[Rfam]
RNA: Small nucleolar RNA SNORA29
Nucleotides: 125
Stems, first nucleotide, its partner, number of pairs: 001048001009038002012035001065112004083100004
Number, partner (000 for none) and nucleotide at each position: 001048a002000a003000u004000a005000g006000u007000u008000g009038u010037c011000u012035c013000c014000u015000u016000c017000u018000c019000c020000u021000a022000u023000u024000g025000c026000u027000a028000g029000a030000u031000u032000a033000u034000a035012g036000u037010g038009g039000c040000u041000a042000u043000g044000c045000u046000u047000a048001u049000g050000g051000a052000g053000u054000a055000g056000a057000u058000g059000a060000a061000a062000g063000g064000u065112g066111c067110c068109a069000u070000g071000a072000u073000a074000u075000g076000a077000a078000g079000a080000g081000a082000g083100a084099g085098g086097g087000c088000u089000u090000u091000u092000c093000a094000g095000u096000g097086u098085c099084c100083u101000c102000u103000a104000u105000g106000a107000a108000a109068u110067g111066g112065c113000c114000g115000g116000a117000c118000a119000u120000a121000a122000c123000a124000c125000u